[Rfam]
RNA sequence: AAUCUCCCAAUCUGCGCGAUUGCACCUGUGUGCCGUGGUGUAAUCGUCGUAACUGGAGAGAGAGAGCAACCUGAGCUUUGUGGGUUCAUCAGGGAGGCCCUCCCUGGUCUCCCUGGUCCUUUCAAAAUUCCACAUUU
Numbered sequence: 001a002a003u004c005u006c007c008c009a010a011u012c013u014g015c016g017c018g019a020u021u022g023c024a025c026c027u028g029u030g031u032g033c034c035g036u037g038g039u040g041u042a043a044u045c046g047u048c049g050u051a052a053c054u055g056g057a058g059a060g061a062g063a064g065a066g067c068a069a070c071c072u073g074a075g076c077u078u079u080g081u082g083g084g085u086u087c088a089u090c091a092g093g094g095a096g097g098c099c100c101u102c103c104c105u106g107g108u109c110u111c112c113c114u115g116g117u118c119c120u121u122u123c124a125a126a127a128u129u130c131c132a133c134a135u136u137u
Base pairs, nucleotide, nucleotide: 004066005065006064008062011059012058013057018045019044020043021042022041023040024039025038077126078125079124080123082120083119084118091114092113093112095110096109097108098107099106
A member of the RNA family "Small nucleolar RNA SNORA64/SNORA10 family" from Prunella himalayana, 137 nucleotides long. The family is grouped with related families in Rfam's "SNORA64 clan". Rfam links the family to the GO terms nucleolus and RNA processing. The family's consensus secondary structure is taken from published work. This family belongs to the H/ACA class of small nucleolar RNAs (snoRNAs) which act as guides in the the modification of uridines to pseudouridines. This family includes the human snoRNAs U64 and ACA10 and mouse MBI-29. It is annotated as an H/ACA-box small nucleolar RNA.